[Rfam]
RNA sequence: AUAAUGUAUCAGGGGAGUUGCCUUUAGCAUCUGAGAAAGUUUUAAACUGACCCUUAUACCUUUCGGAUAAUGCCGGUAUAGGGAGAUAUAUUAUAUUAAGU
Number, nucleotide and partner (000 for none) at each position: 001a000002u000003a000004a000005u000006g089007u088008a087009u086010c085011a054012g053013g052014g051015g000016a000017g031018u000019u029020g028021c027022c000023u000024u000025u000026a000027g021028c020029a019030u000031c017032u000033g000034a000035g000036a000037a000038a048039g047040u046041u045042u000043u000044a000045a041046a040047c039048u038049g000050a000051c014052c013053c012054u011055u000056a000057u000058a000059c082060c081061u080062u000063u076064c075065g074066g073067a000068u000069a000070a000071u000072g000073c066074c065075g064076g063077u000078a000079u000080a061081g060082g059083g000084a000085g010086a009087u008088a007089u006090a000091u000092u000093a000094u000095a000096u000097u000098a000099a000100g000101u000

A member of the RNA family "TPP riboswitch aptamer (THI element)" from Eubacterium sp. CAG:274, 101 nucleotides long.
The base pairs follow the family's consensus structure, which is taken from published work.
A reference for the family is Rodionov et al. (2002), "Comparative genomics of thiamin biosynthesis in procaryotes. New genes and regulatory mechanisms", J Biol Chem.
From the family's description: Vitamin B(1) in its active form thiamin pyrophosphate (TPP) is an essential coenzyme that is synthesised by coupling of pyrimidine and thiazole moieties in bacteria.